[Rfam]
RNA sequence: UGAUAGCAAAGAAACGGAGAUUGCUGCGAAUGAGCAGGUAACUUCGUGGAGCGAAUGUCAAGUUCAAAGAAACUGGCGACAA
Numbered sequence: 001u002g003a004u005a006g007c008a009a010a011g012a013a014a015c016g017g018a019g020a021u022u023g024c025u026g027c028g029a030a031u032g033a034g035c036a037g038g039u040a041a042c043u044u045c046g047u048g049g050a051g052c053g054a055a056u057g058u059c060a061a062g063u064u065c066a067a068a069g070a071a072a073c074u075g076g077c078g079a080c081a082a
Stems, first nucleotide, its partner, number of pairs: 014047006024037004056081004062077003
Shown here is an 82-nucleotide RNA sequence from Eubacterium ruminantium, a member of the family "S10-Clostridia ribosomal protein leader". The family's RNA type in Rfam is cis-regulatory leader. Pairs were carried over by alignment from the consensus structure, which is taken from published work.